Mammalian CPEB3 ribozyme: a 75-nucleotide RNA from Crocodylus porosus. The mammalian CPEB3 ribozyme is a self cleaving RNA located in the second intron of the CPEB3 gene which belongs to a family of genes regulating messenger RNA polyadenylation. On this family, see Teixeira et al., Nature 2004: "Autocatalytic RNA cleavage in the human beta-globin pre-mRNA promotes transcription termination".
RNA sequence: AUUGCAUGUUUGAGACCAUAGCAGAAGCACUCACAGUGCAAUCUGUCAUAUUCCAAUGAAUCUGCAAAUUCUGAU
Numbered sequence: 001a002u003u004g005c006a007u008g009u010u011u012g013a014g015a016c017c018a019u020a021g022c023a024g025a026a027g028c029a030c031u032c033a034c035a036g037u038g039c040a041a042u043c044u045g046u047c048a049u050a051u052u053c054c055a056a057u058g059a060a061u062c063u064g065c066a067a068a069u070u071c072u073g074a075u
Stems, first nucleotide, its partner, number of pairs: 014043002020075001022073005027039003047064002050061004